[Rfam]
Shown here is a 181-nucleotide RNA sequence from Cohnella sp. CIP 111063, a member of the family "c-di-AMP riboswitch aptamer (ydaO/yuaA leader)".
RNA sequence: CCGAUAGAACGGCCGAAUUUCUGCAUGCAGAAAACGGGGGAACCAACGGACGACGUGUACAAGAACUAUUGUAUUCGGACAUCCCGGGGUGAAUUCCGACCGCGACCGACGCGGAGGAUAGGGCAGCCUGUUCGAGCCCGAACCCGACAGCUAACCUCGUAGGCGCUAUACGAACAGGAAU
Numbered sequence: 001c002c003g004a005u006a007g008a009a010c011g012g013c014c015g016a017a018u019u020u021c022u023g024c025a026u027g028c029a030g031a032a033a034a035c036g037g038g039g040g041a042a043c044c045a046a047c048g049g050a051c052g053a054c055g056u057g058u059a060c061a062a063g064a065a066c067u068a069u070u071g072u073a074u075u076c077g078g079a080c081a082u083c084c085c086g087g088g089g090u091g092a093a094u095u096c097c098g099a100c101c102g103c104g105a106c107c108g109a110c111g112c113g114g115a116g117g118a119u120a121g122g123g124c125a126g127c128c129u130g131u132u133c134g135a136g137c138c139c140g141a142a143c144c145c146g147a148c149a150g151c152u153a154a155c156c157u158c159g160u161a162g163g164c165g166c167u168a169u170a171c172g173a174a175c176a177g178g179a180a181u
Base pairs, nucleotide, nucleotide: 012164013163014162018033019032020031021030022029034160035159036158037157038156039155044086087145088144089143095118096117097116121139122138123137124136
Dot-bracket structure: ...........(((...(((((......)))))((((((....(.........................................)(((.....(((..................)))..((((...........))))...))).........)))))).))).................

This family represents a conserved RNA structure found upstream of the ydaO and yuaA genes in Bacillus subtilis and related genes in other bacteria.